[Rfam]
Nucleotides: 224
Stems, first nucleotide, its partner, number of pairs: 012037005019031003023192001025190002039091004045086004049081002051076003055072007111218001112216001114215006134209004139205001140166003145160004171204002173201009
Number, partner (000 for none) and nucleotide at each position: 001000a002000g003000a004000g005000u006000c007000c008000a009000u010000c011000a012037c013036g014035a015034u016033g017000a018000a019031g020030g021029a022000g023192u024000a025190g026189c027000g028000a029021u030020c031019c032000a033016c034015a035014u036013c037012g038000g039091c040090c041089c042088c043000g044000a045086g046085c047084c048083g049081u050080g051076c052075g053074c054000a055072g056071a057070c058069g059068u060067c061066c062000g063000c064000g065000a066061g067060g068059g069058c070057g071056u072055c073000g074053g075052c076051g077000a078000a079000g080050c081049g082000u083048c084047g085046g086045c087000a088042g089041g090040g091039g092000a093000u094000c095000g096000u097000g098000c099000a100000g101000g102000c103000c104000a105000g106000g107000c108000u109000a110000u111218u112216g113000a114215g115214c116213c117212g118211c119210g120000a121000a122000a123000g124000g125000u126000a127000g128000a129000u130000a131000g132000c133000u134209c135208c136207g137206g138000g139205c140166g141165c142164c143000g144000a145160c146159g147158u148157c149000g150000u151000u152000c153000u154000g155000c156000u157148g158147g159146c160145g161000g162000a163000a164142g165141g166140c167000a168000a169000c170000a171204c172203c173201g174200g175199c176198g177197g178196g179195c180194g181193c182000g183000u184000c185000a186000u187000g188000c189026g190025c191000g192023a193181g194180u195179g196178c197177c198176c199175g200174u201173c202000c203172g204171g205139g206137c207136c208135g209134g210119c211118g212117u213116g214115g215114u216112c217000g218111a219000a220000g221000a222000c223000c224000c
The family of this 224-nucleotide RNA from Defluviicoccus vanus is "Group II catalytic intron D1-D4-6". Group II introns are found in rRNA, tRNA and mRNA of organelles in fungi, plants and protists, and also in mRNA in bacteria. It scores 180 bits against the family's covariance model. Lineage of the source: Bacteria > Pseudomonadati > Alphaproteobacteria > Rhodospirillaceae > Defluviicoccus.